A member of the RNA family "FMN riboswitch aptamer (RFN element)" from Sulfitobacter sabulilitoris, 154 nucleotides long.
[Rfam]
RNA sequence: UCUCGUUCUCAGGGCGGGGUGAAAUUCCCCACCGGCGGUAUGUGGCUUUUGCGCCACCAGCCCGCGAGCGGCCCCGCACCCUGUGUGCAGGGUGUCAGCAGAUCCGGUGAGAUGCCGGAGCCGACGGUCACAGUCCGGAUGGAAGAGAAUGCGG
Numbered sequence: 001u002c003u004c005g006u007u008c009u010c011a012g013g014g015c016g017g018g019g020u021g022a023a024a025u026u027c028c029c030c031a032c033c034g035g036c037g038g039u040a041u042g043u044g045g046c047u048u049u050u051g052c053g054c055c056a057c058c059a060g061c062c063c064g065c066g067a068g069c070g071g072c073c074c075c076g077c078a079c080c081c082u083g084u085g086u087g088c089a090g091g092g093u094g095u096c097a098g099c100a101g102a103u104c105c106g107g108u109g110a111g112a113u114g115c116c117g118g119a120g121c122c123g124a125c126g127g128u129c130a131c132a133g134u135c136c137g138g139a140u141g142g143a144a145g146a147g148a149a150u151g152c153g154g
Stems, first nucleotide, its partner, number of pairs: 004151007017029003031134002033123002035065004060121002068099002103119005125137003
A search with the family's covariance model found it, with a score of 111 bits.
Taxonomically the source falls in Sulfitobacter (Bacteria, Pseudomonadota, Alphaproteobacteria, Roseobacteraceae).
Its family is annotated with FMN binding in the Gene Ontology.
The family's consensus secondary structure is taken from published work.